[Rfam]
RNA sequence: UCCUGGUCCAAGUGCAGUGGUAUUUACAACUAAUUGAUCACAACCAGUUACUGAUUUCUUUGUUCCUUCUACAUUCCCACUGCUUUACUUGACUAGCCUAAA
Number, nucleotide and partner (000 for none) at each position: 001u000002c000003c096004u095005g094006g093007u092008c091009c000010a090011a089012g000013u000014g086015c000016a081017g080018u079019g078020g077021u000022a000023u000024u000025u000026a000027c000028a064029a063030c062031u000032a060033a059034u000035u000036g000037a000038u000039c000040a000041c000042a000043a000044c000045c000046a000047g000048u000049u000050a000051c000052u000053g000054a000055u000056u000057u000058c000059u033060u032061u000062g030063u029064u028065c000066c000067u000068u000069c000070u000071a000072c000073a000074u000075u000076c000077c020078c019079a018080c017081u016082g000083c000084u000085u000086u014087a000088c000089u011090u010091g008092a007093c006094u005095a004096g003097c000098c000099u000100a000101a000102a000
RNA: Y RNA
Organism: Theropithecus gelada